[Rfam]
RNA: Small nucleolar RNA R160
Organism: Macleaya cordata
RNA sequence: AGCAAAAUGAUGAGCUGAUACGCUCUGAAUUUUAUGAGGAAGCAUAUAUAUGUCAGUGGUCUUCAAAGUUCUCUGAUUGCU
Numbered sequence: 001a002g003c004a005a006a007a008u009g010a011u012g013a014g015c016u017g018a019u020a021c022g023c024u025c026u027g028a029a030u031u032u033u034a035u036g037a038g039g040a041a042g043c044a045u046a047u048a049u050a051u052g053u054c055a056g057u058g059g060u061c062u063u064c065a066a067a068g069u070u071c072u073c074u075g076a077u078u079g080c081u
Stems, first nucleotide, its partner, number of pairs: 001081005